The record is a 121-nucleotide RNA sequence from Shigella dysenteriae, which matches "Enterobacteria greA leader" in Rfam. Rfam's curators put it in the seed alignment. On this family, see Naville and Gautheret, Genome Biol 2010: "Premature terminator analysis sheds light on a hidden world of bacterial transcriptional attenuation".

[Rfam]
RNA sequence: GUCAUACUACGGCGCAACGCCCUAUAAAGUAAACGAUGACCCUUCGGGAACUUCAGGGUAAAAUGACUAUCAAAAUGUGAAUUGUAGCUGACCUGGACUUGUACCCGGGGCGGUAUUUUUU
Numbered sequence: 001g002u003c004a005u006a007c008u009a010c011g012g013c014g015c016a017a018c019g020c021c022c023u024a025u026a027a028a029g030u031a032a033a034c035g036a037u038g039a040c041c042c043u044u045c046g047g048g049a050a051c052u053u054c055a056g057g058g059u060a061a062a063a064u065g066a067c068u069a070u071c072a073a074a075a076u077g078u079g080a081a082u083u084g085u086a087g088c089u090g091a092c093c094u095g096g097a098c099u100u101g102u103a104c105c106c107g108g109g110g111c112g113g114u115a116u117u118u119u120u121u
Base pairs, nucleotide, nucleotide: 001040002039003038004037005036010035011034014030015029041048042047057071058070059069060068087114088113089112090111092109093108094107095106096105